[Rfam]
RNA sequence: AUCAGAGGCCCUACCAAGGGCCUCCGGAUCGCGUCCCGGUCACCACCGAGCCGAUCCGUGUUGCACGGCCCACAAGGCGGUUCGACGAGGUUGCGACUGGAACGAAGUUGUCCUGAGGGACGGGGAAGCAUCCAACGUAUCAGUCAGAUCGACCGCGUCAUCGAAUCGCAUCGCCCAACGGCAUCCACGAGCCGGCAAGCGAAAGCAUCGACCGAUGCCAAGGCCUGCCACUGUUC
Numbered sequence: 001a002u003c004a005g006a007g008g009c010c011c012u013a014c015c016a017a018g019g020g021c022c023u024c025c026g027g028a029u030c031g032c033g034u035c036c037c038g039g040u041c042a043c044c045a046c047c048g049a050g051c052c053g054a055u056c057c058g059u060g061u062u063g064c065a066c067g068g069c070c071c072a073c074a075a076g077g078c079g080g081u082u083c084g085a086c087g088a089g090g091u092u093g094c095g096a097c098u099g100g101a102a103c104g105a106a107g108u109u110g111u112c113c114u115g116a117g118g119g120a121c122g123g124g125g126a127a128g129c130a131u132c133c134a135a136c137g138u139a140u141c142a143g144u145c146a147g148a149u150c151g152a153c154c155g156c157g158u159c160a161u162c163g164a165a166u167c168g169c170a171u172c173g174c175c176c177a178a179c180g181g182c183a184u185c186c187a188c189g190a191g192c193c194g195g196c197a198a199g200c201g202a203a204a205g206c207a208u209c210g211a212c213c214g215a216u217g218c219c220a221a222g223g224c225c226u227g228c229c230a231c232u233g234u235u236c
Base pairs, nucleotide, nucleotide: 005024006023007022008021009020010019011018012017028055029054030053031052035050037048038047039046040045057151058150060149061148062147068078069077070076080136081135084132085131087129113125114124159168172201173200174199179194180193181192182191209227210226213223
Dot-bracket structure: ....((((((((....))))))))...((((...(.((((....)))).).)))).((.(((.....(((.....))).((..((.(.........................((.........))...).))..))..........))))).......(........)...(((....((((........))))....))).......((..(.........)..)).........

Overview
The record is a 236-nucleotide RNA sequence from Zestomonas carbonaria, which matches "sRNA regulator of biofilms A" in Rfam. Pairs were carried over by alignment from the consensus structure, which was predicted with R-scape. Rfam's curators write: Important for biofilm formation and pathogenicity. A reference for the family is Taylor et al. (2017), "A novel small RNA is important for biofilm formation and pathogenicity in Pseudomonas aeruginosa", PLoS One. The source organism's lineage runs through Bacteria, Pseudomonadati, Gammaproteobacteria, Pseudomonadaceae and Zestomonas. By type it is a small RNA.